[Rfam]
RNA: RNA Staph. aureus D
RNA sequence: GUCUGCUAUAAUAAUUUUAACUUCUUGAAAGAGAAGUUAUCUCCUUUGUGUUGUUUAUAGUAACAAAACAAAUUUUGCUCGAAGUACUGUGACAGUACCUAGUCCUUACCGUUACAAGUACAUUAAUAUUCAUUUCCCAUAAAAGCCAAGUAUAAAAAGUGUCUCCUCACUUUUAUGCUUGGUUUUU
Numbered sequence: 001g002u003c004u005g006c007u008a009u010a011a012u013a014a015u016u017u018u019a020a021c022u023u024c025u026u027g028a029a030a031g032a033g034a035a036g037u038u039a040u041c042u043c044c045u046u047u048g049u050g051u052u053g054u055u056u057a058u059a060g061u062a063a064c065a066a067a068a069c070a071a072a073u074u075u076u077g078c079u080c081g082a083a084g085u086a087c088u089g090u091g092a093c094a095g096u097a098c099c100u101a102g103u104c105c106u107u108a109c110c111g112u113u114a115c116a117a118g119u120a121c122a123u124u125a126a127u128a129u130u131c132a133u134u135u136c137c138c139a140u141a142a143a144a145g146c147c148a149a150g151u152a153u154a155a156a157a158a159g160u161g162u163c164u165c166c167u168c169a170c171u172u173u174u175a176u177g178c179u180u181g182g183u184u185u186u187u
Stems, first nucleotide, its partner, number of pairs: 018039009045072005051066005084121004088116006095109003146182012